[Rfam]
RNA sequence: UUGCACGAUGCUAACCCCGGGCUUGUCGGAUGGAUCUCGGUCCUCUGUGAUGAAGGAAAGCCCCAAUGCUGUGCUAGAUCCACACCGCCGUUCAGUGUUGCAGGCUGCGACACUACGUGUGAAUGAGCAGCCUGUGUCAGAGUAACGGAUACAUUC
Numbered sequence: 001u002u003g004c005a006c007g008a009u010g011c012u013a014a015c016c017c018c019g020g021g022c023u024u025g026u027c028g029g030a031u032g033g034a035u036c037u038c039g040g041u042c043c044u045c046u047g048u049g050a051u052g053a054a055g056g057a058a059a060g061c062c063c064c065a066a067u068g069c070u071g072u073g074c075u076a077g078a079u080c081c082a083c084a085c086c087g088c089c090g091u092u093c094a095g096u097g098u099u100g101c102a103g104g105c106u107g108c109g110a111c112a113c114u115a116c117g118u119g120u121g122a123a124u125g126a127g128c129a130g131c132c133u134g135u136g137u138c139a140g141a142g143u144a145a146c147g148g149a150u151a152c153a154u155u156c
Base pairs, nucleotide, nucleotide: 003074004073005072006071007070010069011068019063020062021061022060023059024056026053027052028051088148089147090146091145092144096139097138099136100135101134102133103132104131107128
small nucleolar RNA snoR134: a 156-nucleotide sequence from Triticum aestivum. Gene Ontology terms of the family: nucleolus and RNA processing. On this family, see Chen and Wu, Nucleic Acids Res 2009: "Mining small RNA sequencing data: a new approach to identify small nucleolar RNAs in Arabidopsis". The match comes from Rfam's covariance-model search (84 bits). The family's RNA type in Rfam is H/ACA-box small nucleolar RNA.